RNA sequence: GGAGGUCGGCUGUGGACGGGUACCUUGCCAACCCGGUCAGGUCCGGAAGGAAGCAGCCGCAGUAAGUUUCGCUCGGGUCAUACGUUCGGCCUCCCAC
Number, nucleotide and partner (000 for none) at each position: 001g000002g000003a000004g091005g090006u089007c088008g087009g000010c000011u082012g081013u080014g079015g000016a000017c075018g074019g073020g072021u071022a000023c000024c066025u065026u064027g063028c062029c000030a000031a000032c000033c000034c059035g058036g057037u056038c000039a000040g000041g000042u051043c050044c049045g000046g000047a000048a000049g044050g043051a042052a000053g000054c000055a000056g037057c036058c035059g034060c000061a000062g028063u027064a026065a025066g024067u000068u000069u000070c000071g021072c020073u019074c018075g017076g000077g000078u000079c014080a013081u012082a011083c000084g000085u000086u000087c008088g007089g006090c005091c004092u000093c000094c000095c000096a000097c000

The family of this 97-nucleotide sequence from Kozakia baliensis is "Bacterial small signal recognition particle RNA". Pairs were carried over by alignment from the consensus structure, which is taken from published work. The organism belongs to Kozakia, within Bacteria. Its Rfam clan is "SRP clan".